[Rfam]
RNA sequence: AAUGGCGAUAGCCACUAUAAACAGGCCUUUAAGCUGUGAGCGUUCCCAUCUGGUAAAGUUGGGAGGUAGUC
Dot-bracket structure: [.[[...((((.]].]........[.[[....[))))...].((((((.(.......).))))))..]].]
RNA: Pistol ribozyme